[Rfam]
RNA sequence: AAGCAUGCUAUCCUAAGGACCUGGGCUCCUCCGUAGUUCAAGGUUCUCCAAGUGCAUGCAACAAUAUUGGCCAGACUUUGACUGCUGUAGACCUAAUUUGUCCUCAGCAGCCACUCAUCUGCCCAACAGCU
Numbered sequence: 001a002a003g004c005a006u007g008c009u010a011u012c013c014u015a016a017g018g019a020c021c022u023g024g025g026c027u028c029c030u031c032c033g034u035a036g037u038u039c040a041a042g043g044u045u046c047u048c049c050a051a052g053u054g055c056a057u058g059c060a061a062c063a064a065u066a067u068u069g070g071c072c073a074g075a076c077u078u079u080g081a082c083u084g085c086u087g088u089a090g091a092c093c094u095a096a097u098u099u100g101u102c103c104u105c106a107g108c109a110g111c112c113a114c115u116c117a118u119c120u121g122c123c124c125a126a127c128a129g130c131u
Stems, first nucleotide, its partner, number of pairs: 013042002018038003022033003069124002072121003084111002087104001090101001

Background:
The record is a 131-nucleotide RNA from Cynoglossus semilaevis, which matches "Small nucleolar RNA SNORA44" in Rfam. The literature on the family includes a 2001 paper in EMBO J by Huttenhofer et al., "RNomics: an experimental approach that identifies 201 candidates for novel, small, non-messenger RNAs in mouse". Rfam 15.1 lists 1,056 matches to the family in 599 species. Rfam links the family to the GO terms nucleolus and RNA processing.